[Rfam]
RNA sequence: CUCUGGAGAGAGCUUCAGUAAAGAUUGAAGCCACCCAAGAGGAAAACCAGUUGGUAAACUUUCAGGUCAAAGGACAGAG
Numbered sequence: 001c002u003c004u005g006g007a008g009a010g011a012g013c014u015u016c017a018g019u020a021a022a023g024a025u026u027g028a029a030g031c032c033a034c035c036c037a038a039g040a041g042g043a044a045a046a047c048c049a050g051u052u053g054g055u056a057a058a059c060u061u062u063c064a065g066g067u068c069a070a071a072g073g074a075c076a077g078a079g
Base pairs, nucleotide, nucleotide: 001079002078003077004076005075012031013030014029015028033067034066035065037062040061041060042059047053
Dot-bracket structure: (((((......((((............)))).(((.(..(((....(.....).....))))..))).......)))))

Glycine riboswitch aptamer: a 79-nucleotide sequence from Bacillus coahuilensis.
Lineage of the source: Bacteria > Bacillota > Bacilli > Caryophanales > Bacillus coahuilensis.
The pairing is the family consensus, mapped onto this sequence.
The literature on the family includes a 2004 paper in Science by Mandal et al., "A glycine-dependent riboswitch that uses cooperative binding to control gene expression".
It scores 47 bits against the family's covariance model.
Rfam describes the family as follows. This family represents the bacterial glycine riboswitch.